Shown here is a 177-nucleotide part of an RNA from Immersiella caudata, a member of the family "Ascomycota telomerase RNA". A search with the family's covariance model found it, with a score of 588 bits. Rfam 15.1 lists 475 matches to the family in 456 species. Its Rfam clan is "Telomerase clan". It is annotated as a non-coding RNA gene.
RNA sequence: ACCUAGUGCCGUCUGCUCUCACGGGCAGAGGUACCUUUCCUUCGAUGGGCCUGAAAGGUACUUGAGGAAGAUGAUAGCACGGUUUUUAACGACGUUUUUGUACGUGCGUUGGUGCCCUCCUAGUGAGCCAGCUCGCUGGCGCUGAACAGGGAGAGGAAACAAAAACAAGUCCUAGUU
Numbered sequence: 001a002c003c004u005a006g007u008g009c010c011g012u013c014u015g016c017u018c019u020c021a022c023g024g025g026c027a028g029a030g031g032u033a034c035c036u037u038u039c040c041u042u043c044g045a046u047g048g049g050c051c052u053g054a055a056a057g058g059u060a061c062u063u064g065a066g067g068a069a070g071a072u073g074a075u076a077g078c079a080c081g082g083u084u085u086u087u088a089a090c091g092a093c094g095u096u097u098u099u100g101u102a103c104g105u106g107c108g109u110u111g112g113u114g115c116c117c118u119c120c121u122a123g124u125g126a127g128c129c130a131g132c133u134c135g136c137u138g139g140c141g142c143u144g145a146a147c148a149g150g151g152a153g154a155g156g157a158a159a160c161a162a163a164a165a166c167a168a169g170u171c172c173u174a175g176u177u
Stems, first nucleotide, its partner, number of pairs: 006034003010031001012029007038074002040070004046064004052057001091171003094166008115156002117153004129144004135140001